[Rfam]
RNA sequence: GCAAGUUCUCAGGGCGGGGUGCAAGUCCCCACCGGCGGUAAUGGCGCGAUGCCUAGCCCGCGAGCGCCUGGCAGCGAAGGCUGUCAGGGUCAGCAGAACCGGUGAGAUUCCGGUGCCGACGGUGAUAGUCCGGAUAAAGAGAGAACGGGA
Numbered sequence: 001g002c003a004a005g006u007u008c009u010c011a012g013g014g015c016g017g018g019g020u021g022c023a024a025g026u027c028c029c030c031a032c033c034g035g036c037g038g039u040a041a042u043g044g045c046g047c048g049a050u051g052c053c054u055a056g057c058c059c060g061c062g063a064g065c066g067c068c069u070g071g072c073a074g075c076g077a078a079g080g081c082u083g084u085c086a087g088g089g090u091c092a093g094c095a096g097a098a099c100c101g102g103u104g105a106g107a108u109u110c111c112g113g114u115g116c117c118g119a120c121g122g123u124g125a126u127a128g129u130c131c132g133g134a135u136a137a138a139g140a141g142a143g144a145a146c147g148g149g150a
Stems, first nucleotide, its partner, number of pairs: 005146006017029003031129002033118002035061004056116002064094002098114005120132003
Shown here is a 150-nucleotide RNA from Pseudomonas fluvialis, a member of the family "FMN riboswitch aptamer (RFN element)". Pairs were carried over by alignment from the consensus structure, which is taken from published work.